[Rfam]
RNA sequence: UAACCUUAGAUUAGGUAGAGAUACCUGCUGAACUUAAGCAUAUUAAUAAGCAGAGGAAAAGAAACUAACAAGAAUUGCUCUAGUAAUAGCAAGUAAAGCAGCAAUAGCUUAAAUUUAAAAUCUAGCUCUUUUAAAGUCUAAGUUGUAAUUUACAGAGAGCGCUUUAGUAUUAGCAGCAGCUUAAGUUCCUUAGAACAGGUUAUUAUAAAGGGUAAGAAUUCUGUAUGUAGCUACUUGUCUUUACUGUGUAAAGCCCCUUUAAUAAGUUGAGUUGUUUAGAAAUACAGCUCUAAAUAGAAGGUAAAUUUCUUCUAAAGCUAAAUAUUAGCUAGAGACUAAUAGCGCACAAGUAGAGUAAUUAAAAGAUAAAAAGCACUUUAGAAAGAGAGUUAAAAAGUACGUAAAAUUGUUAAAAGAGAAGC
Numbered sequence: 001u002a003a004c005c006u007u008a009g010a011u012u013a014g015g016u017a018g019a020g021a022u023a024c025c026u027g028c029u030g031a032a033c034u035u036a037a038g039c040a041u042a043u044u045a046a047u048a049a050g051c052a053g054a055g056g057a058a059a060a061g062a063a064a065c066u067a068a069c070a071a072g073a074a075u076u077g078c079u080c081u082a083g084u085a086a087u088a089g090c091a092a093g094u095a096a097a098g099c100a101g102c103a104a105u106a107g108c109u110u111a112a113a114u115u116u117a118a119a120a121u122c123u124a125g126c127u128c129u130u131u132u133a134a135a136g137u138c139u140a141a142g143u144u145g146u147a148a149u150u151u152a153c154a155g156a157g158a159g160c161g162c163u164u165u166a167g168u169a170u171u172a173g174c175a176g177c178a179g180c181u182u183a184a185g186u187u188c189c190u191u192a193g194a195a196c197a198g199g200u201u202a203u204u205a206u207a208a209a210g211g212g213u214a215a216g217a218a219u220u221c222u223g224u225a226u227g228u229a230g231c232u233a234c235u236u237g238u239c240u241u242u243a244c245u246g247u248g249u250a251a252a253g254c255c256c257c258u259u260u261a262a263u264a265a266g267u268u269g270a271g272u273u274g275u276u277u278a279g280a281a282a283u284a285c286a287g288c289u290c291u292a293a294a295u296a297g298a299a300g301g302u303a304a305a306u307u308u309c310u311u312c313u314a315a316a317g318c319u320a321a322a323u324a325u326u327a328g329c330u331a332g333a334g335a336c337u338a339a340u341a342g343c344g345c346a347c348a349a350g351u352a353g354a355g356u357a358a359u360u361a362a363a364a365g366a367u368a369a370a371a372a373g374c375a376c377u378u379u380a381g382a383a384a385g386a387g388a389g390u391u392a393a394a395a396a397g398u399a400c401g402u403a404a405a406a407u408u409g410u411u412a413a414a415a416g417a418g419a420a421g422c
Base pairs, nucleotide, nucleotide: 024055025053026052027051028050029049035042036041065072066071076103077102078101079100086094087093106319107318108317109316112150113149114148115147118144119143121141125137126136127135155260156259157257159255162253163252164251165250167244168243169242173238175235176234178232179231180230181229185201188199189198190197204208211221212220269290270289271288272287273286274285275284296313297312298311299310300309353360354359376387377386378385379384
Rfam assigns this 422-nucleotide part of an RNA from Melanomma pulvis-pyrius to the family "Eukaryotic large subunit ribosomal RNA". NCBI's taxonomy places the organism under Eukaryota, saccharomyceta, Pezizomycotina, Dothideomycetes, Melanomma pulvis-pyrius.